[Rfam]
RNA: c-di-AMP riboswitch aptamer (ydaO/yuaA leader)
Organism: Streptomyces regalis
RNA sequence: CCUACGUACUCACUCACGCACGGCAGGAGCGGGGGACCCAGGUAAGUCGCCGGACCGGACGCCUCGAUGGCACGCCGGGCCGGCUCGGGGUGAAGUUCGCGCUGCCGCACGGCGGCGCGGCCGGGCAUCUCCCGCCCGAACCCGACAGCUCACCUCGCAGGCGUCGGAGAGGAACA
Numbered sequence: 001c002c003u004a005c006g007u008a009c010u011c012a013c014u015c016a017c018g019c020a021c022g023g024c025a026g027g028a029g030c031g032g033g034g035g036a037c038c039c040a041g042g043u044a045a046g047u048c049g050c051c052g053g054a055c056c057g058g059a060c061g062c063c064u065c066g067a068u069g070g071c072a073c074g075c076c077g078g079g080c081c082g083g084c085u086c087g088g089g090g091u092g093a094a095g096u097u098c099g100c101g102c103u104g105c106c107g108c109a110c111g112g113c114g115g116c117g118c119g120g121c122c123g124g125g126c127a128u129c130u131c132c133c134g135c136c137c138g139a140a141c142c143c144g145a146c147a148g149c150u151c152a153c154c155u156c157g158c159a160g161g162c163g164u165c166g167g168a169g170a171g172g173a174a175c176a
Base pairs, nucleotide, nucleotide: 001161002160007027029158030157031156032155033154034153039087088143089142090141097120098119099118100117101116102115103114104113105112106111123137124136125135126134